RNA sequence: GCGUGCCACGGAGAUGGCAUUCCUCCAUUAACCGCCGGCGCAAGCCGGCUGAUGAUGCCUACGUAUCC
Numbered sequence: 001g002c003g004u005g006c007c008a009c010g011g012a013g014a015u016g017g018c019a020u021u022c023c024u025c026c027a028u029u030a031a032c033c034g035c036c037g038g039c040g041c042a043a044g045c046c047g048g049c050u051g052a053u054g055a056u057g058c059c060u061a062c063g064u065a066u067c068c
Stems, first nucleotide, its partner, number of pairs: 010026004016059006034049006